[Rfam]
RNA sequence: ACAUCAUGGAUAGUGUGUAUCGACGAUGCACAAAAUUUUUAGUGCACUCUGUUCGAAAGAAUUUCUUGCAAAAUUGAUUUGGGGAAGAUGAGCAGUUGUGCUUCAUAUCCACGAUUGAUUCUUUUCAACAAUAAUCUUCUAUGUAUUC
Numbered sequence: 001a002c003a004u005c006a007u008g009g010a011u012a013g014u015g016u017g018u019a020u021c022g023a024c025g026a027u028g029c030a031c032a033a034a035a036u037u038u039u040u041a042g043u044g045c046a047c048u049c050u051g052u053u054c055g056a057a058a059g060a061a062u063u064u065c066u067u068g069c070a071a072a073a074u075u076g077a078u079u080u081g082g083g084g085a086a087g088a089u090g091a092g093c094a095g096u097u098g099u100g101c102u103u104c105a106u107a108u109c110c111a112c113g114a115u116u117g118a119u120u121c122u123u124u125u126c127a128a129c130a131a132u133a134a135u136c137u138u139c140u141a142u143g144u145a146u147u148c
Stems, first nucleotide, its partner, number of pairs: 005068002008065003015047006081142001083140007091132001095129004
RNA: small nucleolar RNA snoR135